A member of the RNA family "Pseudomonas sRNA CrcZ" from Pseudomonas japonica, 398 nucleotides long. By type it is a small RNA. Pairs were carried over by alignment from the consensus structure, which was predicted with WAR. Rfam 15.1 lists 127 matches to the family in 96 species.
[Rfam]
RNA sequence: ACAAGAACAAUAACAAGCACUGCAAAACACAAUAAAAAUAAGACGAAUCGGCUCACGCACAAUAAGAACAAGACGGCGGAGGCGCAGCUAACUGAUUCUUUUGGAGAUGAGUUGUGUUUGGGGCUUGCCCCACAACCAGGCAGAGAACAACAAAAACUGCACUCUAGCAGAGCCUGAACUGGUUGGAUCGAUAGAUCAUCGCAACAUCGGCGAUCAAAGCAAUCCGUUUGCUCUUGUACUCCCGGUUAGGGAGACAGUCCACCAGCCUCACGGCAUUGGGUGGUCAGGGCACUCAACAAAAACAAGAAGCCCGACAAAAAAAUAAUAAGAGCACGCAACUACUUCUUGGGGAGCUUCGGCUCCCCUUGUAGUUUCCGCGUUCCGACAAUCCCUUUCGU
Number, nucleotide and partner (000 for none) at each position: 001a000002c000003a000004a000005g000006a000007a000008c000009a000010a000011u000012a000013a000014c000015a000016a000017g000018c000019a000020c000021u000022g000023c000024a000025a000026a000027a000028c000029a000030c000031a000032a000033u000034a000035a000036a000037a000038a000039u000040a000041a000042g000043a000044c000045g000046a000047a000048u000049c084050g083051g000052c081053u080054c079055a000056c000057g000058c000059a000060c000061a000062a000063u000064a000065a000066g000067a000068a000069c000070a000071a000072g000073a000074c000075g000076g000077c000078g000079g054080a053081g052082g000083c050084g049085c000086a000087g000088c000089u000090a000091a000092c000093u000094g000095a000096u000097u000098c000099u219100u218101u217102u216103g215104g000105a000106g000107a000108u000109g000110a000111g000112u000113u212114g211115u210116g000117u000118u000119u000120g000121g000122g000123g000124c000125u000126u000127g000128c000129c000130c000131c000132a000133c185134a184135a183136c182137c181138a180139g179140g000141c000142a000143g000144a000145g000146a000147a000148c000149a000150a000151c000152a000153a000154a000155a000156a000157c170158u169159g168160c167161a000162c000163u000164c000165u000166a000167g160168c159169a158170g157171a000172g000173c000174c000175u000176g000177a000178a000179c139180u138181g137182g136183u135184u134185g133186g000187a000188u000189c000190g000191a000192u000193a000194g000195a000196u000197c000198a000199u000200c000201g000202c000203a000204a000205c000206a000207u000208c000209g000210g115211c114212g113213a000214u000215c103216a102217a101218a100219g099220c000221a000222a000223u000224c000225c000226g000227u000228u000229u000230g000231c000232u000233c000234u000235u000236g000237u000238a000239c253240u252241c251242c250243c000244g000245g000246u000247u000248a000249g000250g242251g241252a240253g239254a000255c000256a000257g000258u000259c000260c000261a000262c000263c000264a000265g000266c000267c000268u000269c000270a000271c000272g000273g000274c000275a000276u000277u000278g380279g000280g378281u377282g376283g375284u000285c000286a000287g312288g311289g310290c309291a000292c000293u000294c000295a000296a000297c000298a000299a000300a000301a000302a000303c000304a000305a000306g000307a000308a000309g290310c289311c288312c287313g000314a000315c000316a000317a000318a000319a000320a000321a000322a000323u000324a000325a000326u000327a000328a000329g000330a000331g374332c000333a372334c371335g000336c000337a000338a000339c000340u000341a000342c000343u000344u000345c000346u000347u000348g365349g364350g363351g362352a361353g360354c359355u000356u000357c000358g000359g354360c353361u352362c351363c350364c349365c348366u000367u000368g000369u000370a000371g334372u333373u000374u331375c283376c282377g281378c280379g000380u278381u000382c000383c000384g000385a000386c000387a000388a000389u000390c000391c000392c000393u000394u000395u000396c000397g000398u000